[Rfam]
RNA sequence: GGAUAACACUAUUUUGUUAUCCCCGGUCAAUAACACAAUGACAAGUGGAAAAGUUAUUCUACAUGUCACUGCGUUAUUGGUCGGGGAUAGCAAAAAGUGCUAUCU
Dot-bracket structure: .((((......(((((((((.(((((((((((((.((.(((((.((((((......)))))).))))).)).))))))))))))).))))))))).....)))).
RNA: MIR6274 microRNA precursor family
Organism: Prunus persica